[Rfam]
RNA sequence: CCCGGUCCUCGGUAGUGGCUCUCGGUUCCGCCGCGUCCCCCGCACAGUGCUGGGGGUACGCCGGAGCGUGGGCCUCGAUCGAAGACCGGC
Numbered sequence: 001c002c003c004g005g006u007c008c009u010c011g012g013u014a015g016u017g018g019c020u021c022u023c024g025g026u027u028c029c030g031c032c033g034c035g036u037c038c039c040c041c042g043c044a045c046a047g048u049g050c051u052g053g054g055g056g057u058a059c060g061c062c063g064g065a066g067c068g069u070g071g072g073c074c075u076c077g078a079u080c081g082a083a084g085a086c087c088g089g090c
Stems, first nucleotide, its partner, number of pairs: 002089006009082005017074005023068002026065001028064002